[Rfam]
Rfam assigns this 167-nucleotide RNA sequence from Jeotgalibacillus alimentarius to the family "glmS glucosamine-6-phosphate activated ribozyme aptamer".
The family's consensus secondary structure is taken from published work.
Its family is annotated with catalytic activity and regulation of gene expression in the Gene Ontology.
RNA sequence: UAGUUAUAAAAAGCGCCAGGACUGCCCGUUGAGUAGCGGCAGUUGACGAGGAGAAGGAGCAUCGAGCAUUCGGCGGAUGCCUUCCGGCUGAUGACUGCACAGCCGAAAACCUGUUAUUCAAAAUCACCGAGGCGACUCAGUGGACAAAGAAAACAGGACUGCAGCAC
Numbered sequence: 001u002a003g004u005u006a007u008a009a010a011a012a013g014c015g016c017c018a019g020g021a022c023u024g025c026c027c028g029u030u031g032a033g034u035a036g037c038g039g040c041a042g043u044u045g046a047c048g049a050g051g052a053g054a055a056g057g058a059g060c061a062u063c064g065a066g067c068a069u070u071c072g073g074c075g076g077a078u079g080c081c082u083u084c085c086g087g088c089u090g091a092u093g094a095c096u097g098c099a100c101a102g103c104c105g106a107a108a109a110c111c112u113g114u115u116a117u118u119c120a121a122a123a124u125c126a127c128c129g130a131g132g133c134g135a136c137u138c139a140g141u142g143g144a145c146a147a148a149g150a151a152a153a154c155a156g157g158a159c160u161g162c163a164g165c166a167c
Base pairs, nucleotide, nucleotide: 020044021043022042023041024040025039026038029035053084054083055082056081057080062073063072064071065070085105086104087103088102089101090100110157111156112155113154114153115152125142126141127140129138130137131136